[Rfam]
Rfam assigns this 246-nucleotide RNA sequence from Glaucidium brasilianum to the family "Small nucleolar RNA SNORD17". The organism belongs to Glaucidium, within Eukaryota. Gene Ontology terms of the family: RNA processing and nucleolus. The family's consensus secondary structure was predicted with RNAalifold.
RNA sequence: GUGAAGUGAUGAUGAAGUUUAUCCAUUCUCUGAGUGCAGUGGUGCUGUCCUCCUGCAGCACCCCGAUUCCUGUUCUAGGGUCUGGGUGUUGUGCAGCCUCCAGAGACCCUGCAGUCUCCCAGUGUCCUACUGGGGACUGCUGUGGUGUGUGGCUGGCUGCCUGCAGGGGAAAGUGGUGCUGGCAGGGUUGGAGCCCCUCUCUGGGGAACUCCGUCCCCAUUGAGAUGAGGGAUGAUGUCUGAUCAU
Numbered sequence: 001g002u003g004a005a006g007u008g009a010u011g012a013u014g015a016a017g018u019u020u021a022u023c024c025a026u027u028c029u030c031u032g033a034g035u036g037c038a039g040u041g042g043u044g045c046u047g048u049c050c051u052c053c054u055g056c057a058g059c060a061c062c063c064c065g066a067u068u069c070c071u072g073u074u075c076u077a078g079g080g081u082c083u084g085g086g087u088g089u090u091g092u093g094c095a096g097c098c099u100c101c102a103g104a105g106a107c108c109c110u111g112c113a114g115u116c117u118c119c120c121a122g123u124g125u126c127c128u129a130c131u132g133g134g135g136a137c138u139g140c141u142g143u144g145g146u147g148u149g150u151g152g153c154u155g156g157c158u159g160c161c162u163g164c165a166g167g168g169g170a171a172a173g174u175g176g177u178g179c180u181g182g183c184a185g186g187g188u189u190g191g192a193g194c195c196c197c198u199c200u201c202u203g204g205g206g207a208a209c210u211c212c213g214u215c216c217c218c219a220u221u222g223a224g225a226u227g228a229g230g231g232a233u234g235a236u237g238u239c240u241g242a243u244c245a246u
Base pairs, nucleotide, nucleotide: 010245011244012243013242017238018237020235023231024230026229027228028227030224031223034220035219039183040182042180043178044177045176046175047174048173051169052168053167054166056163057162059088060087061086062085063084065082068080069079070078071077093160094159095158096157097156098155106146107145111140112139113138114137115136116135118134119133120132121131122130123129124128185217186216187215189213190212191211192210196205197204